[Rfam]
RNA sequence: GAGCUGGCAAGAACCUUUUGAAUCACUCCAAUACUUGUACUUGAUUCAAAAGGUUCUAACAA
Number, nucleotide and partner (000 for none) at each position: 001g000002a000003g000004c000005u000006g000007g060008c000009a000010a057011g056012a055013a054014c053015c052016u051017u050018u049019u048020g047021a046022a045023u044024c043025a042026c000027u000028c000029c000030a000031a000032u000033a000034c000035u000036u000037g000038u000039a000040c000041u000042u025043g024044a023045u022046u021047c020048a019049a018050a017051a016052g015053g014054u013055u012056c011057u010058a000059a000060c007061a000062a000
Shown here is a 62-nucleotide RNA sequence from Cajanus cajan, a member of the family "Plastid-ccsA-ndhD-1 3UTR RNA". A reference for the family is Richter et al. (2023), "Retrograde signaling in plants: A critical review focusing on the GUN pathway and beyond", Plant Commun. Plastid-ccsA-ndhD-1 is a non-coding RNA (ncRNA) recognised in plastids. It was found in the three prime untranslated region (3UTR) of ccsA and ndhD genes, its 3UTR location suggests a role in transcript maturation. The family has 488 seed sequences and 1,322 matches in Rfam 15.1. NCBI's taxonomy places the organism under Eukaryota, Viridiplantae, Streptophytina, Magnoliopsida, Cajanus. By type it is a cis-regulatory element. It scores 54 bits against the family's covariance model.